Rfam assigns this 71-nucleotide RNA from Nicotiana sylvestris to the family "MIR6151 microRNA precursor family". It scores 84 bits against the family's covariance model. Its family is annotated with RISC complex and miRNA-mediated post-transcriptional gene silencing in the Gene Ontology. The base pairs follow the family's consensus structure, which was predicted with RNAalifold.

RNA sequence: AAUCGUUGGAUGAGUGUGAAGCACUGGAUUGAUUUCGUUCAAUCCAAGCCCCACAUUCAUCAGGGGUUUGU
Dot-bracket structure: ...(.((.((((((((((..((..((((((((......)))))))).))..)))))))))).)).).....